[Rfam]
Nucleotides: 046
Base pairs, nucleotide, nucleotide: 006021007020008019009018010017011016
Number, partner (000 for none) and nucleotide at each position: 001000c002000c003000a004000a005000a006021g007020g008019c009018u010017c011016u012000u013000u014000u015000a016011a017010g018009a019008g020007c021006c022000a023000c024000u025000c026000a027000c028000u029000u030000u031000u032000u033000c034000u035000a036000u037000g038000a039000a040000a041000g042000c043000g044000c045000a046000u